[Rfam]
RNA: Purine riboswitch aptamer
RNA sequence: AUAGAACGACUACAAUUCAUUCGUAUAACCUCACGAAUUCAGGGUGAGGGUUUCUACGGGAAGCCUUAACUUCCUAACUACGAAUAUCGGGAUCGGAUUU
Numbered sequence: 001a002u003a004g005a006a007c008g009a010c011u012a013c014a015a016u017u018c019a020u021u022c023g024u025a026u027a028a029c030c031u032c033a034c035g036a037a038u039u040c041a042g043g044g045u046g047a048g049g050g051u052u053u054c055u056a057c058g059g060g061a062a063g064c065c066u067u068a069a070c071u072u073c074c075u076a077a078c079u080a081c082g083a084a085u086a087u088c089g090g091g092a093u094c095g096g097a098u099u100u
Stems, first nucleotide, its partner, number of pairs: 019085007029049006058075006